[Rfam]
RNA: Glycine riboswitch aptamer
RNA sequence: AUGAUGGUUGUGGGAGAGACCUUUUAAGAGGCGCCGAAGGAGCAAAACGGUUAACCUAUGCUGCGGUAACCGCUCAAACUCUCAGGCAAAAGGACUGCAACCUGACG
Numbered sequence: 001a002u003g004a005u006g007g008u009u010g011u012g013g014g015a016g017a018g019a020c021c022u023u024u025u026a027a028g029a030g031g032c033g034c035c036g037a038a039g040g041a042g043c044a045a046a047a048c049g050g051u052u053a054a055c056c057u058a059u060g061c062u063g064c065g066g067u068a069a070c071c072g073c074u075c076a077a078a079c080u081c082u083c084a085g086g087c088a089a090a091a092g093g094a095c096u097g098c099a100a101c102c103u104g105a106c107g
Stems, first nucleotide, its partner, number of pairs: 006102008020031004033087003036083002040081003046074001